[Rfam]
Rfam assigns this 275-nucleotide sequence from Setaria digitata to the family "RNase MRP".
The family's consensus secondary structure is taken from published work.
The match comes from Rfam's covariance-model search (89 bits).
The family has 66 seed sequences and 3,510 matches in Rfam 15.1.
Clan: RNaseP clan.
Gene Ontology terms of the family: ribonuclease MRP complex, ribonuclease MRP activity and rRNA processing.
RNase MRP is an enzymatically active ribonucleoprotein with two distinct roles in eukaryotes.
RNA sequence: GGGUGAUGGGAAGUGUAACACUCGCAGUGACUCACCGGUUGAUUAAUGACCGCAUUUGUUUAAUGGCUGUGAGCGAAAGUCCCUGAACAUUGGGCUGAGAGAGCUCCAUCCUUAAUAUGGGUGUACUCGGAUAUCCAAUCAGGAUGGCGUUUGGGCCAAGAAACCAUGAAUGGUUGAGCCUGGGAUGGCCAUCGAUUGACUUCCGGGGUUCGUUGCAAGCAAAGUGACGUUACACCACUGUCAGGAAACAGCACAGGGCUUACUCUCCCCUUAUC
Numbered sequence: 001g002g003g004u005g006a007u008g009g010g011a012a013g014u015g016u017a018a019c020a021c022u023c024g025c026a027g028u029g030a031c032u033c034a035c036c037g038g039u040u041g042a043u044u045a046a047u048g049a050c051c052g053c054a055u056u057u058g059u060u061u062a063a064u065g066g067c068u069g070u071g072a073g074c075g076a077a078a079g080u081c082c083c084u085g086a087a088c089a090u091u092g093g094g095c096u097g098a099g100a101g102a103g104c105u106c107c108a109u110c111c112u113u114a115a116u117a118u119g120g121g122u123g124u125a126c127u128c129g130g131a132u133a134u135c136c137a138a139u140c141a142g143g144a145u146g147g148c149g150u151u152u153g154g155g156c157c158a159a160g161a162a163a164c165c166a167u168g169a170a171u172g173g174u175u176g177a178g179c180c181u182g183g184g185a186u187g188g189c190c191a192u193c194g195a196u197u198g199a200c201u202u203c204c205g206g207g208g209u210u211c212g213u214u215g216c217a218a219g220c221a222a223a224g225u226g227a228c229g230u231u232a233c234a235c236c237a238c239u240g241u242c243a244g245g246a247a248a249c250a251g252c253a254c255a256g257g258g259c260u261u262a263c264u265c266u267c268c269c270c271u272u273a274u275c
Stems, first nucleotide, its partner, number of pairs: 002275005008269004014234006022073001023071006037051005077261003081258004093105004107123005126207003136198005145191004153181004163174004236245001